The record is a 226-nucleotide RNA sequence from Branchiostoma belcheri, which matches "Small nucleolar RNA SNORA73 family" in Rfam. A reference for the family is Enright et al. (1996), "5'ETS rRNA processing facilitated by four small RNAs: U14, E3, U17, and U3", RNA. Pairs were carried over by alignment from the consensus structure, which is taken from published work. Rfam links the family to the GO terms nucleolus and RNA processing. U17 (SNORA73A and SNORA73B) also known as E1 belongs to the H/ACA class of small nucleolar RNAs (snoRNAs). Vertebrate U17 is intron-encoded and ranges in length from 200-230 nucleotides, longer than most snoRNAs.

RNA sequence: CCAACGUAGCACCCAGCACCUCCUGGCUCUGCUGUAGUGGCGUCGGGAGCUCAGCGCUUGUUCUUUAGCAGGCGCCGUGAGGCACGUUCCCCUUCCACGACGUUGGAGAGCAAGUCUGUCCCCGGCUGCCCUCGGGCGCUGGUGUGGGCAGACCCUCGCAUAUCCGUGCUGCUUCCCAGAGUCGCUCUGACACUGACUGGGGGGACUGACCAUGCAAGGAACACCU
Numbered sequence: 001c002c003a004a005c006g007u008a009g010c011a012c013c014c015a016g017c018a019c020c021u022c023c024u025g026g027c028u029c030u031g032c033u034g035u036a037g038u039g040g041c042g043u044c045g046g047g048a049g050c051u052c053a054g055c056g057c058u059u060g061u062u063c064u065u066u067a068g069c070a071g072g073c074g075c076c077g078u079g080a081g082g083c084a085c086g087u088u089c090c091c092c093u094u095c096c097a098c099g100a101c102g103u104u105g106g107a108g109a110g111c112a113a114g115u116c117u118g119u120c121c122c123c124g125g126c127u128g129c130c131c132u133c134g135g136g137c138g139c140u141g142g143u144g145u146g147g148g149c150a151g152a153c154c155c156u157c158g159c160a161u162a163u164c165c166g167u168g169c170u171g172c173u174u175c176c177c178a179g180a181g182u183c184g185c186u187c188u189g190a191c192a193c194u195g196a197c198u199g200g201g202g203g204g205a206c207u208g209a210c211c212a213u214g215c216a217a218g219g220a221a222c223a224c225c226u
Stems, first nucleotide, its partner, number of pairs: 001106007008033004013026003037098004045091004049085001052082001054078002155218002158215004172204006181191004
Its Rfam clan is "snR30-U17 clan".
It is annotated as an H/ACA-box small nucleolar RNA.